RNA: SAM riboswitch aptamer (S box leader)
RNA sequence: UUUUCAUCAAGAGUUGGCUGAGGGACUGGCCCUAUGAAGCCGCGGCAACCAUCGCAGAUGCGAAACGGUGCCAAUUCCUGCAACCCGCAAGGGGCUGGCAGAUGAGAA
Dot-bracket structure: ((((((((....(.((((...(((.[.[[)))......)))))((((.((.(((......)))...))))))...(]].]((.(((.....))).))..)))))))))